[Rfam]
RNA sequence: UGAGAGAACUCAGGAGAAGGAACUCGGCAAAUUGAUACCGUAACUUCGGGAGAAGGUAUGCCCCGGUAGCGUGUUAAAGCGUGAAGGGGCCGCAGUGAAUCGGUGGCUGCGACUGUUUAUUAAAAACACAGCACUCUGCAAACACGAAAGUGGACGUAUAGGGUGUGACGCCUGCCCGGUGCUGGAAGGUUAAGUGAUGGGGUGCAAGCUCUUGAUCGAAGCCCCAGUAAACGGCGGCCGUAACUAUAACGGUCCUAAGGUAGCGAAAUUCCUUGUCGGGUAAGUUCCGACCUGCACGAAUGGCGUAACGAUGGCCACACUGUCUCCUCCUGAGACUCA
Numbered sequence: 001u002g003a004g005a006g007a008a009c010u011c012a013g014g015a016g017a018a019g020g021a022a023c024u025c026g027g028c029a030a031a032u033u034g035a036u037a038c039c040g041u042a043a044c045u046u047c048g049g050g051a052g053a054a055g056g057u058a059u060g061c062c063c064c065g066g067u068a069g070c071g072u073g074u075u076a077a078a079g080c081g082u083g084a085a086g087g088g089g090c091c092g093c094a095g096u097g098a099a100u101c102g103g104u105g106g107c108u109g110c111g112a113c114u115g116u117u118u119a120u121u122a123a124a125a126a127c128a129c130a131g132c133a134c135u136c137u138g139c140a141a142a143c144a145c146g147a148a149a150g151u152g153g154a155c156g157u158a159u160a161g162g163g164u165g166u167g168a169c170g171c172c173u174g175c176c177c178g179g180u181g182c183u184g185g186a187a188g189g190u191u192a193a194g195u196g197a198u199g200g201g202g203u204g205c206a207a208g209c210u211c212u213u214g215a216u217c218g219a220a221g222c223c224c225c226a227g228u229a230a231a232c233g234g235c236g237g238c239c240g241u242a243a244c245u246a247u248a249a250c251g252g253u254c255c256u257a258a259g260g261u262a263g264c265g266a267a268a269u270u271c272c273u274u275g276u277c278g279g280g281u282a283a284g285u286u287c288c289g290a291c292c293u294g295c296a297c298g299a300a301u302g303g304c305g306u307a308a309c310g311a312u313g314g315c316c317a318c319a320c321u322g323u324c325u326c327c328u329c330c331u332g333a334g335a336c337u338c339a
Stems, first nucleotide, its partner, number of pairs: 001339004009334008018325003035059005044049001060090005070083005091095001103318007110310002114128003131166008139156001143152003169305004174235003179232002181228005188223003194217001199212005236254006255259001265292001275291006

Record summary
Shown here is a 339-nucleotide part of an RNA from Oligella urethralis, a member of the family "Bacterial large subunit ribosomal RNA". The match comes from Rfam's covariance-model search (2781 bits).